[Rfam]
Rhizobiales sRNA Atu_C8: a 120-nucleotide RNA from Devosia geojensis. On this family, see Wilms et al., RNA Biol 2012: "Deep sequencing uncovers numerous small RNAs on all four replicons of the plant pathogen Agrobacterium tumefaciens". Pairs were carried over by alignment from the consensus structure, which was predicted with CMfinder. Taxonomically the source falls in Devosia (Bacteria, Pseudomonadati, Alphaproteobacteria, Hyphomicrobiales). A search with the family's covariance model found it, with a score of 84 bits.
Nucleotides: 120
Base pairs, nucleotide, nucleotide: 007028029116030115032113034081035080036079037078038077039076040075041074042073045062046061047060048059049058050057064071065070087107089106090105091104092103093102094101095100
Number, partner (000 for none) and nucleotide at each position: 001000g002000a003000a004000g005000g006000u007028u008000g009000a010000g011000a012000g013000g014000c015000u016000c017000u018000u019000c020000g021000u022000c023000g024000u025000a026000g027000u028007a029116g030115g031000a032113a033000g034081g035080c036079g037078c038077g039076u040075g041074g042073g043000c044000a045062g046061g047060u048059c049058g050057g051000c052000g053000u054000a055000a056000g057050c058049c059048g060047g061046c062045c063000g064071g065070c066000g067000a068000a069000a070065g071064c072000a073042c074041c075040c076039g077038c078037g079036c080035g081034c082000g083000g084000u085000a086000a087107g088000c089106a090105g091104g092103c093102c094101c095100c096000g097000g098000a099000a100095g101094g102093g103092g104091c105090u106089u107087u108000u109000u110000u111000c112000a113032u114000g115030c116029c117000c118000g119000a120000u